[Rfam]
RNA: Cyano-1 RNA
Organism: Oculatella sp. FACHB-28
Nucleotides: 075
Base pairs, nucleotide, nucleotide: 028070029069030068031067032066035063036062037061038060039059040057041056042055
Number, partner (000 for none) and nucleotide at each position: 001000g002000u003000a004000a005000c006000u007000g008000u009000g010000a011000g012000g013000a014000g015000u016000g017000a018000a019000c020000u021000g022000a023000a024000u025000g026000a027000c028070g029069a030068a031067g032066c033000c034000c035063c036062u037061g038060g039059a040057g041056u042055c043000g044000a045000a046000a047000c048000a049000u050000g051000g052000c053000a054000a055042g056041a057040c058000g059039u060038c061037c062036g063035g064000g065000g066032g067031c068030u069029u070028u071000u072000u073000c074000a075000a